Rfam assigns this 64-nucleotide sequence from Camelus bactrianus to the family "MAT2A 3'UTR stem loop B". Pairs were carried over by alignment from the consensus structure, which is taken from published work.

[Rfam]
RNA sequence: ACUGGUACUUGGUAUCCUUGUUAUGUCGAGUAGAGAAGUCACAGGGUGGUAACUGAGGGAUGGU
Numbered sequence: 001a002c003u004g005g006u007a008c009u010u011g012g013u014a015u016c017c018u019u020g021u022u023a024u025g026u027c028g029a030g031u032a033g034a035g036a037a038g039u040c041a042c043a044g045g046g047u048g049g050u051a052a053c054u055g056a057g058g059g060a061u062g063g064u
Base pairs, nucleotide, nucleotide: 001064002063003062004061006059008057009056012053016046017045018044019043020042021041023039024038025031026030
The source organism's lineage runs through Eukaryota, Eumetazoa, Euteleostomi, Boreoeutheria and Camelus.